Notes:
Rfam assigns this 53-nucleotide RNA from Rhizorhapis suberifaciens to the family "ffh sRNA". The match comes from Rfam's covariance-model search (35 bits).
RNA sequence: CUGUCCACGGAUAGACGCUGGUCGGCGAGGCUUCGCCCACCGGCGUGUUUUGC
Numbered sequence: 001c002u003g004u005c006c007a008c009g010g011a012u013a014g015a016c017g018c019u020g021g022u023c024g025g026c027g028a029g030g031c032u033u034c035g036c037c038c039a040c041c042g043g044c045g046u047g048u049u050u051u052g053c
Stems, first nucleotide, its partner, number of pairs: 016045007025036004

By type it is a small RNA.